[Rfam]
RNA sequence: UGAGACGUGUUCAUAAGUCGUAAAGGGUGGUCGGCUAAUCCCCUAUGAAAGGGGGUGAUGCCUCUGGACGCUUACCAAAUGUUUGUGAUUUUAUUUUCGUUUGGAAGCUUUUUGGUUGGUUUGCUCGGUUUAGUUGUGAAAUUAAUUUCAGAGUUCACCAACAAAAAAUAGACCUCCCUUACACUUGUUAACGCUUAAGGAGAGGUCUAUCGCUUGUAUGAUGGGCCGAUCCUCUUUAUGAAGAGAACACGGACUCAAAGGGCGACCGCAGCUGCCACUGUGGUCG
Dot-bracket structure: ((((.(((.(...(..(((...(((((.(.(....(.(.(((((.....))))).).).......((((..(......(((..........))).........(((........................................)))..)))))..............).)..)))))............((.................))..........)))..)((.(.........).))).)))..)))).....(((((((((......)))))))))
Numbered sequence: 001u002g003a004g005a006c007g008u009g010u011u012c013a014u015a016a017g018u019c020g021u022a023a024a025g026g027g028u029g030g031u032c033g034g035c036u037a038a039u040c041c042c043c044u045a046u047g048a049a050a051g052g053g054g055g056u057g058a059u060g061c062c063u064c065u066g067g068a069c070g071c072u073u074a075c076c077a078a079a080u081g082u083u084u085g086u087g088a089u090u091u092u093a094u095u096u097u098c099g100u101u102u103g104g105a106a107g108c109u110u111u112u113u114g115g116u117u118g119g120u121u122u123g124c125u126c127g128g129u130u131u132a133g134u135u136g137u138g139a140a141a142u143u144a145a146u147u148u149c150a151g152a153g154u155u156c157a158c159c160a161a162c163a164a165a166a167a168a169u170a171g172a173c174c175u176c177c178c179u180u181a182c183a184c185u186u187g188u189u190a191a192c193g194c195u196u197a198a199g200g201a202g203a204g205g206u207c208u209a210u211c212g213c214u215u216g217u218a219u220g221a222u223g224g225g226c227c228g229a230u231c232c233u234c235u236u237u238a239u240g241a242a243g244a245g246a247a248c249a250c251g252g253a254c255u256c257a258a259a260g261g262g263c264g265a266c267c268g269c270a271g272c273u274g275c276c277a278c279u280g281u282g283g284u285c286g
Stems, first nucleotide, its partner, number of pairs: 001257004006251003010247001014229001017226003023180005029173001031171001036058001038056001040054005066156004072152001079094003104149003193213002230246002233243001263286009
BsrG: a 286-nucleotide RNA from Pontibacillus litoralis. It scores 60 bits against the family's covariance model. The literature on the family includes a 2016 paper in J Biol Chem by Meissner et al., "In Vitro Characterization of the Type I Toxin-Antitoxin System bsrE/SR5 from Bacillus subtilis". Rfam links the family to the GO terms autolysis and toxin activity. Rfam's curators write: bsrE, bsrG and bsrH pair through intermolecular interactions with antisense sRNAs. They form type I toxin/antitoxin system that includes an mRNA encoding for a short, toxic peptide (bsrE, bsrG and bsrH) and an antitoxin that is comprised of an antisense RNA. bsrG encodes a 39-amino-acid toxin, and the 180 nucleotide antisense sRNA called SR4 acts as the antitoxin (they overlap by 123 nucleotides). SR4 interaction with the 3'UTR of bsrG RNA promotes bsrG degradation and inhibits its translation. BsrG interferes with cell envelope biosynthesis, causes membrane invaginations and delocalisation of the cell wall synthesis and initiates autolysis. bsrE RNA encodes 30 amino-acid toxin peptide. NCBI's taxonomy places the organism under Bacteria, Bacillota, Bacillaceae, Pontibacillus, Pontibacillus litoralis.